The record is a 64-nucleotide RNA from Caldicellulosiruptor saccharolyticus, which matches "Fluoride riboswitch aptamer (crcB RNA motif)" in Rfam.
The family's consensus secondary structure is taken from published work.
The family has 289 seed sequences and 2,293 matches in Rfam 15.1.
RNA sequence: UGCUGCAACGGCGAGGGAGUCCGCCGAACAAAUGCCAAUGAUGGCUGAUGACUCCUACAAAUAU
Numbered sequence: 001u002g003c004u005g006c007a008a009c010g011g012c013g014a015g016g017g018a019g020u021c022c023g024c025c026g027a028a029c030a031a032a033u034g035c036c037a038a039u040g041a042u043g044g045c046u047g048a049u050g051a052c053u054c055c056u057a058c059a060a061a062u063a064u
Base pairs, nucleotide, nucleotide: 010025011024012023013022016055017054018053019052020051021050034045035044036043037042